sucC RNA: a 69-nucleotide RNA from Ectopseudomonas mendocina. The family's consensus secondary structure is taken from published work.
RNA sequence: GUCACAGGUGGCGCGGUAUCACAAGUACAGCGCCGAAUGCGCAAUACCUAAACGAAGACGGUAGACAAG
Dot-bracket structure: ........((((((.((((.....)))).))))))..................................
Numbered sequence: 001g002u003c004a005c006a007g008g009u010g011g012c013g014c015g016g017u018a019u020c021a022c023a024a025g026u027a028c029a030g031c032g033c034c035g036a037a038u039g040c041g042c043a044a045u046a047c048c049u050a051a052a053c054g055a056a057g058a059c060g061g062u063a064g065a066c067a068a069g
Stems, first nucleotide, its partner, number of pairs: 009035006016028004